[Rfam]
RNA sequence: GUGGGAUAUGGUGAUAUAUAUCCUAUAUCACCUAUAGGGAAAUGUGUGGGUACAGUAUGUUCGCUCUGUGGUCUGUUGAUAAUCUCCAUGCCUAUAGCCAUUAUAGCAGCUAAU
Numbered sequence: 001g002u003g004g005g006a007u008a009u010g011g012u013g014a015u016a017u018a019u020a021u022c023c024u025a026u027a028u029c030a031c032c033u034a035u036a037g038g039g040a041a042a043u044g045u046g047u048g049g050g051u052a053c054a055g056u057a058u059g060u061u062c063g064c065u066c067u068g069u070g071g072u073c074u075g076u077u078g079a080u081a082a083u084c085u086c087c088a089u090g091c092c093u094a095u096a097g098c099c100a101u102u103a104u105a106g107c108a109g110c111u112a113a114u
Stems, first nucleotide, its partner, number of pairs: 001114002004111002007108001009106001011104001013102003019096003037077002040074001050062001
Description:
The record is a 114-nucleotide RNA from Lottia gigantea, which matches "Potassium channel RNA editing signal" in Rfam. This family represents a group of sequences related to the human potassium channel Kv1.1 hairpin element which directs the efficient modification of an adenosine to inosine by an adenosine deaminase acting on RNA (ADAR). The ADAR modification causes an isoleucine/valine recoding event which lies in the ion-conducting pore of the potassium channel. It is thought that this editing event targets the process of fast inactivation and allows a more rapid recovery from inactivation at negative potentials. Taxonomically the source falls in Lottia (Eukaryota, Metazoa, Bilateria, Lophotrochozoa). The family's consensus secondary structure is taken from published work. By type it is a cis-regulatory element.